[Rfam]
RNA: Small nucleolar RNA Z39
RNA sequence: GCAGGGGUGAUGUGACAAAAUAGGAUAAGAAACUGUGAUGCUGUAAAUGCUUUCUGAUGUG
Numbered sequence: 001g002c003a004g005g006g007g008u009g010a011u012g013u014g015a016c017a018a019a020a021u022a023g024g025a026u027a028a029g030a031a032a033c034u035g036u037g038a039u040g041c042u043g044u045a046a047a048u049g050c051u052u053u054c055u056g057a058u059g060u061g
Base pairs, nucleotide, nucleotide: 002061003060005058012053014051016049021043022042023041025039026038